[Rfam]
RNA sequence: AAAACGGUUCUUUUCAGAACCACAAAUUAUUAUUAAAGUUUGUUUU
Dot-bracket structure: .....((((((....)))))).........................
Shown here is a 46-nucleotide sequence from Diabrotica balteata, a member of the family "Histone 3' UTR stem-loop". The source organism's lineage runs through Eukaryota, Pancrustacea, Pterygota, Neoptera and Diabrotica. Rfam's curators write: The mRNAs of metazoan histone genes lack a poly-A tail. 3' end processing occurs at a site between a highly conserved stem-loop (modelled by this family) and a purine rich region around 20 nts downstream (the histone downstream element, or HDE). The stem-loop is bound by a 31 kDa stem-loop binding protein (SLBP - also termed the histone hairpin binding protein, or HBP). For this family Rfam cites "The sequence of the stem and flanking sequences at the 3' end of histone mRNA are critical determinants for the binding of the stem-loop binding protein" (Williams and Marzluff, Nucleic Acids Res, 1995). A search with the family's covariance model found it, with a score of 38 bits.